[Rfam]
RNA sequence: UAAGGGCGGGAGAGGGUCCCUAAGCCCGGAUUGCGAGAGGGCGCAGGCCAGGCCGAGGGACCCCACUGGUGCACG
Number, nucleotide and partner (000 for none) at each position: 001u000002a000003a000004g072005g000006g070007c068008g067009g066010g000011a000012g000013a000014g063015g062016g061017u060018c059019c058020c057021u056022a000023a000024g053025c052026c051027c000028g049029g048030a000031u046032u045033g044034c043035g042036a000037g000038a000039g000040g000041g000042c035043g034044c033045a032046g031047g000048c029049c028050a000051g026052g025053c024054c000055g000056a021057g020058g019059g018060a017061c016062c015063c014064c000065a000066c009067u008068g007069g000070u006071g000072c004073a000074c000075g000